Histidine operon leader: a 122-nucleotide RNA from Mannheimia varigena. Its family is annotated with histidine biosynthetic process in the Gene Ontology. About the family: At least 6 amino acid operons are known to be regulated by attenuation. In each a leader sequence of 150-200 bp is found upstream of the first gene in the operon. This leader sequence can assume two different secondary structures known as the terminator and the anti-terminator structure. It scores 72 bits against the family's covariance model. Rfam classes the family as a cis-regulatory leader. The family's consensus secondary structure is taken from published work. A reference for the family is Kolter and Yanofsky (1982), "Attenuation in amino acid biosynthetic operons", Annu Rev Genet. NCBI's taxonomy places the organism under Bacteria, Pseudomonadota, Pasteurellaceae, Mannheimia, Mannheimia varigena.
[Rfam]
RNA sequence: UCAUCACCAUCAUUUCCCUGAAUAAUCUUUCGGGCAUUUGGUGUGUGCGGAAGAUAAACUUCCGAGUGCGCAUAAACGCAAAAUCUAACCCUCUCGGAAGUCUUUCGAGAGGGUUUUUUACA
Numbered sequence: 001u002c003a004u005c006a007c008c009a010u011c012a013u014u015u016c017c018c019u020g021a022a023u024a025a026u027c028u029u030u031c032g033g034g035c036a037u038u039u040g041g042u043g044u045g046u047g048c049g050g051a052a053g054a055u056a057a058a059c060u061u062c063c064g065a066g067u068g069c070g071c072a073u074a075a076a077c078g079c080a081a082a083a084u085c086u087a088a089c090c091c092u093c094u095c096g097g098a099a100g101u102c103u104u105u106c107g108a109g110a111g112g113g114u115u116u117u118u119u120a121c122a
Stems, first nucleotide, its partner, number of pairs: 008045003011040002017034005046065001048064006083119001087115012